The record is a 79-nucleotide RNA sequence from Galemys pyrenaicus, which matches "Small nucleolar RNA U2-19" in Rfam.
RNA sequence: GAUCAACAAUGAAAAUAGCCAAAUCUGAACAUCAGCAGAAGUUCCAAUCUGCUGAUGCAGAAACUCUGUAGUUCUGAGA
Numbered sequence: 001g002a003u004c005a006a007c008a009a010u011g012a013a014a015a016u017a018g019c020c021a022a023a024u025c026u027g028a029a030c031a032u033c034a035g036c037a038g039a040a041g042u043u044c045c046a047a048u049c050u051g052c053u054g055a056u057g058c059a060g061a062a063a064c065u066c067u068g069u070a071g072u073u074c075u076g077a078g079a
Stems, first nucleotide, its partner, number of pairs: 030057004037050003
The family has 29 seed sequences and 1,147 matches in Rfam 15.1. The match comes from Rfam's covariance-model search (72 bits). Lineage of the source: Eukaryota > Bilateria > Craniata > Laurasiatheria > Galemys.